A member of the RNA family "mir-92 microRNA precursor family" from Gouania willdenowi, 78 nucleotides long. This family represents the microRNA precursor mir-92. Human miR-92 has two predicted hairpin precursor sequences: mir-92-1 on chromosome 13 and mir-92-2 on chromosome X. miR-92 has also been cloned from mouse embryonic stem cells. The mature sequence is excised from the 3' arm of the hairpin. The organism belongs to Gouania, within Eukaryota. The family's consensus secondary structure was predicted with PFOLD. The family has 23 seed sequences and 1,347 matches in Rfam 15.1. The literature on the family includes a 2002 paper in Genes Dev by Mourelatos et al., "miRNPs: a novel class of ribonucleoproteins containing numerous microRNAs". Rfam links the family to the GO terms miRNA-mediated post-transcriptional gene silencing and RISC complex.

RNA sequence: CUUUCUGUGCAGGUUGGGAGAGGGAGCAAUGCUCUGUGCUGAUGUAGUAUUGCACUUGUCCCGGCCUAUUAAGAACAU
Numbered sequence: 001c002u003u004u005c006u007g008u009g010c011a012g013g014u015u016g017g018g019a020g021a022g023g024g025a026g027c028a029a030u031g032c033u034c035u036g037u038g039c040u041g042a043u044g045u046a047g048u049a050u051u052g053c054a055c056u057u058g059u060c061c062c063g064g065c066c067u068a069u070u071a072a073g074a075a076c077a078u
Base pairs, nucleotide, nucleotide: 004074005073006072009069011067012066013065014064016062017061018060019059022056023055026053027052028051029050030049031048032047033046